[Rfam]
Nucleotides: 110
Base pairs, nucleotide, nucleotide: 007059008058009057010056011055012054015049016048020046021045022043023040024039025038026037027035028034061082062081063080064079065078066077067076085105087108091103092102093101
Number, partner (000 for none) and nucleotide at each position: 001000c002000g003000a004000a005000u006000u007059g008058u009057u010056c011055c012054c013000u014000a015049g016048g017000g018000u019000u020046c021045c022043g023040c024039g025038g026037c027035g028034g029000a030000u031000a032000c033000a034028c035027c036000g037026g038025c039024c040023g041000g042000a043022c044000u045021g046020g047000u048016c049015c050000a051000a052000g053000a054012g055011g056010g057009a058008a059007c060000g061082c062081g063080c064079g065078g066077c067076a068000c069000u070000u071000u072000a073000u074000c075000a076067u077066g078065u079064c080063g081062u082061g083000g084000a085105c086000a087108c088000g089000g090000a091103g092102g093101g094000a095000c096000a097000a098000a099000a100000g101093c102092c103091c104000g105085g106000g107000a108087g109000a110000u